[Rfam]
RNA sequence: UACUUAUCCAGAAAGACCGAGGGAAAGGCCCUGAGACGUCUUAGCAACCUGUUUAUUUUUUACAAGGUGCUAACUCCUUCCGCAAUAAAAGCGGUAAGAUAAGAU
Numbered sequence: 001u002a003c004u005u006a007u008c009c010a011g012a013a014a015g016a017c018c019g020a021g022g023g024a025a026a027g028g029c030c031c032u033g034a035g036a037c038g039u040c041u042u043a044g045c046a047a048c049c050u051g052u053u054u055a056u057u058u059u060u061u062a063c064a065a066g067g068u069g070c071u072a073a074c075u076c077c078u079u080c081c082g083c084a085a086u087a088a089a090a091g092c093g094g095u096a097a098g099a100u101a102a103g104a105u
Stems, first nucleotide, its partner, number of pairs: 003103006013042005021031003025079004043071004048067002050064003075097001080094004
Dot-bracket structure: ..((((((....(((((...(((.[[[[)))......)))))((((.(((((.........))).))))))...(]]]]((((.......))))..)))))))..
RNA: SAM riboswitch aptamer (S box leader)